[Rfam]
Rfam assigns this 129-nucleotide sequence from Cnephaeus nilssonii to the family "Small nucleolar RNA SNORA3/SNORA45 family". About the family: The members of this family belong to the H/ACA class of snoRNAs which are thought to guide the sites of modification of uridines to pseudouridines. Its family is annotated with RNA processing and nucleolus in the Gene Ontology. The family's consensus secondary structure was predicted with RNAalifold. By type it is an H/ACA-box small nucleolar RNA. The family is grouped with related families in Rfam's "SNORA3 clan". Lineage of the source: Eukaryota > Eumetazoa > Teleostomi > Sarcopterygii > Cnephaeus.

RNA sequence: UUUAAGAAGGGAGGGAGGUAUUGACAGCUGUUGUCCUGGUGUGCUAGAGUUCUUGGAGAGAAUCUGCUGGUCUUGAUUCACUGACCCGGGCAAUAAGUGCCCCCGGUAGUGCCCAGAUCAGAAACAUAG
Numbered sequence: 001u002u003u004a005a006g007a008a009g010g011g012a013g014g015g016a017g018g019u020a021u022u023g024a025c026a027g028c029u030g031u032u033g034u035c036c037u038g039g040u041g042u043g044c045u046a047g048a049g050u051u052c053u054u055g056g057a058g059a060g061a062a063u064c065u066g067c068u069g070g071u072c073u074u075g076a077u078u079c080a081c082u083g084a085c086c087c088g089g090g091c092a093a094u095a096a097g098u099g100c101c102c103c104c105g106g107u108a109g110u111g112c113c114c115a116g117a118u119c120a121g122a123a124a125c126a127u128a129g
Base pairs, nucleotide, nucleotide: 002056003055004054005053006052007050012045013044016042018040019039023035024034025033026032067121068120069119070118071117072116073115075113079111080110081109082108083107088102089101090100091099